[Rfam]
RNA sequence: AAAAAGGGCUUCUGCUGUGUGUAGCACAGGAGGGGUGGUGUUUACCACUCCUCCUGCGGAAUCGCCAUCAAGAGAUUUCGGAAGCACAAUUUUUAUAACUGGGGCUGCUGGUGAUCACUCGUCCUGGCGCCCCG
Number, nucleotide and partner (000 for none) at each position: 001a000002a000003a000004a000005a000006g000007g000008g085009c084010u083011u082012c081013u026014g025015c024016u023017g022018u000019g000020u000021g000022u017023a016024g015025c014026a013027c056028a055029g054030g053031a052032g051033g050034g049035g048036u047037g046038g045039u000040g000041u000042u000043u000044a000045c038046c037047a036048c035049u034050c033051c032052u031053c030054c029055u028056g027057c080058g079059g078060a077061a076062u075063c074064g000065c000066c000067a000068u000069c000070a000071a000072g000073a000074g063075a062076u061077u060078u059079c058080g057081g012082a011083a010084g009085c008086a000087c000088a000089a000090u000091u000092u000093u000094u000095a000096u000097a000098a000099c000100u000101g000102g132103g131104g130105c129106u000107g128108c127109u126110g125111g124112u000113g123114a122115u121116c000117a000118c000119u000120c000121g115122u114123c113124c111125u110126g109127g108128c107129g105130c104131c103132c102133c000134g000

Shown here is a 134-nucleotide sequence from Tetraodon nigroviridis, a member of the family "U11 spliceosomal RNA". The base pairs follow the family's consensus structure, which is taken from published work. It is annotated as a spliceosomal small nuclear RNA. The family is grouped with related families in Rfam's "U1 clan".